[Rfam]
RNA sequence: GUGUUUUUCAUAGUAUUAGAUUUAAGGUUAUAAUAAAAGAGAUUGGGUUGUCGGGAGGACAACCUUUUCUUGUU
Numbered sequence: 001g002u003g004u005u006u007u008u009c010a011u012a013g014u015a016u017u018a019g020a021u022u023u024a025a026g027g028u029u030a031u032a033a034u035a036a037a038a039g040a041g042a043u044u045g046g047g048u049u050g051u052c053g054g055g056a057g058g059a060c061a062a063c064c065u066u067u068u069c070u071u072g073u074u
Stems, first nucleotide, its partner, number of pairs: 046064007
Record summary:
Rfam assigns this 74-nucleotide sequence from Dysgonomonas sp. PH5-37 to the family "Bacteroidetes FopS (family of paralogous sRNAs)". A reference for the family is Ruttiger et al. (2025), "The global RNA-binding protein RbpB is a regulator of polysaccharide utilization in Bacteroides thetaiotaomicron", Nat Commun. From the family's description: The RNA-binding protein RbpB and BTncRNA_FopS sRNA are involved in the post-transcription regulation of polysaccharide utilisation loci (PUL). FopS sRNAs function as post-transcriptional repressors by binding to the vicinity of the start codon of the first mRNA of target PUL polycistrons, typically corresponding to the cognate SusC homolog, impeding translation of the respective glycan transporter. Pairs were carried over by alignment from the consensus structure, which is taken from published work. The family has 12 seed sequences and 822 matches in Rfam 15.1. The organism belongs to Dysgonomonas, within Bacteria.